[Rfam]
RNA sequence: AUAAUUACCUGGACGGGGUCGAUGGGCGAUCAAUAAGGCCCAUGGCCUAGGUUGGUGAUCUCUAUUGCACUUUGGAGGGGUGCCCGCCUAAGGUCGGCUCAAGUGGUCGAACCUAUGUCAUAAUUUGUGGCAGCGGGGGCCUGCAUUCGCGCAGCUCCUAC
Dot-bracket structure: ...........((((((((((.(((((..........)))))))))))(((.(.(((.(((((..........)).))).)))..)))).((((((.((.....)).))).))).))))...............((((...(((......)))..))))..